[Rfam]
RNA sequence: ACUCAUGAUGAUAUACUUGUGGAAUCUUGUUCGGCUGAAAUUCUGUUGACAAAAUUUUUAUCUGACGUUA
Number, nucleotide and partner (000 for none) at each position: 001a000002c000003u000004c000005a000006u000007g000008a000009u000010g000011a000012u000013a000014u000015a000016c000017u000018u000019g000020u000021g000022g000023a000024a000025u054026c000027u052028u051029g050030u000031u000032c048033g047034g046035c045036u000037g000038a000039a000040a000041u000042u000043c000044u000045g035046u034047u033048g032049a000050c029051a028052a027053a000054a025055u000056u000057u000058u000059u000060a000061u000062c000063u000064g000065a000066c000067g000068u000069u000070a000
A member of the RNA family "Small nucleolar RNA SNORD30" from Triplophysa tibetana, 70 nucleotides long. Its Rfam clan is "SNORD30 clan". The pairing is the family consensus, mapped onto this sequence. NCBI's taxonomy places the organism under Eukaryota, Metazoa, Chordata, Otomorpha, Triplophysa. Its family is annotated with nucleolus and RNA processing in the Gene Ontology.